[Rfam]
RNA sequence: AAGAGAUUUUUGUAAAAAUUCUGCAUUAUUCCUUGACUGGAAAUUUUCCUUCGUGUAUAUUAUAGACAUCAUUUAACAGGAUAAUUUUUGAGUUUUCCAGAACUAGAUAAUUAUUCUGCUAGUGAUAAUAUUUAUUUCGACACAAUCUGUGUCUUGAAAGGCUUAGGAGGAAAAGUUCACAUGCAAAACGGCAAAGUUAAAUGGUUCAAUAACGAAAAAGGUUUUGGUUUUAUUGAAGUUGAAGGCGGAGACGAUGUGUUCGUUCACUUCACUGCUAUCCAAGGCGACGGCUUCAAGUCUUUGGAAGAAGGCCAGGAAGUUUCUUUUGAAAUCGUUGAAGGAAACCGCGGACCUCAAGCAGCUAAUGUUGUAAAACUUUAAUCAGCACUUAUAGAUAUUGGCCCAUUGGAGACCAAUUAAAAAAGGCUGGCAUUUUGCCAGCCUUUUUUAC
Number, nucleotide and partner (000 for none) at each position: 001a000002a000003g000004a020005g019006a000007u017008u016009u015010u000011u000012g000013u000014a000015a009016a008017a007018a000019u005020u004021c000022u000023g000024c000025a000026u237027u236028a000029u000030u000031c235032c000033u000034u000035g000036a000037c000038u000039g231040g230041a000042a000043a229044u000045u227046u226047u000048c221049c220050u219051u218052c000053g000054u000055g000056u216057a000058u214059a000060u000061u211062a210063u209064a000065g207066a206067c000068a205069u204070c203071a000072u000073u000074u151075a150076a000077c149078a148079g147080g146081a000082u000083a000084a000085u000086u000087u000088u140089u139090g138091a137092g136093u000094u110095u109096u000097c000098c000099a000100g000101a000102a000103c000104u000105a000106g000107a000108u000109a095110a094111u000112u000113a000114u000115u000116c000117u000118g000119c124120u000121a000122g000123u000124g119125a000126u000127a000128a000129u000130a000131u000132u000133u000134a000135u000136u092137u091138c090139g089140a088141c000142a000143c000144a000145a000146u080147c079148u078149g077150u075151g074152u000153c191154u190155u000156g000157a000158a000159a000160g000161g000162c000163u000164u000165a000166g000167g000168a000169g000170g000171a000172a000173a000174a000175g000176u000177u000178c000179a000180c000181a000182u000183g000184c000185a000186a000187a000188a000189c000190g154191g153192c000193a000194a000195a000196g000197u000198u000199a000200a000201a000202u000203g070204g069205u068206u066207c065208a000209a063210u062211a061212a000213c000214g058215a000216a056217a000218a051219a050220g049221g048222u000223u000224u000225u000226g046227g045228u000229u043230u040231u039232a000233u000234u000235g031236a027237a026238g000239u000240u328241g327242a326243a325244g324245g323246c000247g000248g000249a000250g000251a000252c000253g261254a260255u000256g000257u000258g000259u000260u254261c253262g000263u000264u000265c000266a320267c319268u318269u317270c000271a000272c315273u314274g313275c311276u310277a000278u305279c304280c303281a302282a301283g300284g000285c000286g299287a298288c297289g000290g000291c000292u000293u000294c000295a000296a000297g288298u287299c286300u283301u282302u281303g280304g279305a278306a000307g000308a000309a000310g276311g275312c000313c274314a273315g272316g000317a269318a268319g267320u266321u000322u000323c245324u244325u243326u242327u241328g240329a000330a000331a000332u000333c349334g348335u347336u000337g346338a000339a000340g000341g345342a000343a000344a000345c341346c337347g335348c334349g333350g396351a000352c000353c000354u000355c000356a000357a000358g000359c000360a000361g000362c000363u000364a000365a000366u000367g000368u000369u000370g000371u000372a000373a000374a000375a000376c000377u000378u000379u000380a000381a000382u000383c000384a000385g000386c000387a000388c000389u000390u000391a000392u000393a000394g000395a000396u350397a000398u000399u415400g414401g413402c000403c408404c000405a000406u000407u000408g403409g000410a000411g000412a000413c401414c400415a399416a000417u000418u000419a000420a448421a447422a446423a445424a444425g443426g442427c441428u440429g439430g438431c437432a000433u000434u000435u000436u000437g431438c430439c429440a428441g427442c426443c425444u424445u423446u422447u421448u420449u000450a000451c000